The record is a 91-nucleotide sequence from Pelagibacterales bacterium SAG-MED19, which matches "Glycine riboswitch aptamer" in Rfam. Taxonomically the source falls in Candidatus Pelagibacterales (Bacteria, Pseudomonadati, Pseudomonadota, Alphaproteobacteria).

[Rfam]
RNA sequence: UAUUCGCCUACGGGAGAGACUACAGUAUAUCGUAGCGCCGAAGGAGCAACCACCCAGGAAUCUCUCAGGCAAAAAGGACCGUAGCAUAUUA
Numbered sequence: 001u002a003u004u005c006g007c008c009u010a011c012g013g014g015a016g017a018g019a020c021u022a023c024a025g026u027a028u029a030u031c032g033u034a035g036c037g038c039c040g041a042a043g044g045a046g047c048a049a050c051c052a053c054c055c056a057g058g059a060a061u062c063u064c065u066c067a068g069g070c071a072a073a074a075a076g077g078a079c080c081g082u083a084g085c086a087u088a089u090u091a
Stems, first nucleotide, its partner, number of pairs: 008084006020035004037070003040066002044064003050057001